[Rfam]
RNA sequence: ACACAGAAGGGAGGUGAUCCGAAGAAUGAGUUCUUUUCGGAUGAGUGAGGUGGCUGCCCGCUAGGCAGCCCCCGGCAUCGCCGACAGCUGCCGGCGAAUUCACCGCAGCCACCCGACCCGCAGGCGCCCGGAGUCCAUCCACCGGGGCCCUCUCACCAGGGGCAGCACGCCUGCGGGUCGCUGCAU
Numbered sequence: 001a002c003a004c005a006g007a008a009g010g011g012a013g014g015u016g017a018u019c020c021g022a023a024g025a026a027u028g029a030g031u032u033c034u035u036u037u038c039g040g041a042u043g044a045g046u047g048a049g050g051u052g053g054c055u056g057c058c059c060g061c062u063a064g065g066c067a068g069c070c071c072c073c074g075g076c077a078u079c080g081c082c083g084a085c086a087g088c089u090g091c092c093g094g095c096g097a098a099u100u101c102a103c104c105g106c107a108g109c110c111a112c113c114c115g116a117c118c119c120g121c122a123g124g125c126g127c128c129c130g131g132a133g134u135c136c137a138u139c140c141a142c143c144g145g146g147g148c149c150c151u152c153u154c155a156c157c158a159g160g161g162g163c164a165g166c167a168c169g170c171c172u173g174c175g176g177g178u179c180g181c182u183g184c185a186u
Stems, first nucleotide, its partner, number of pairs: 013058004018053001059096004064092003068088002073083003114180013127146005

Overview:
The family of this 186-nucleotide sequence from Nocardioides zhouii is "Actinobacteria sRNA Ms_IGR-5". The pairing is the family consensus, mapped onto this sequence. A search with the family's covariance model found it, with a score of 100 bits.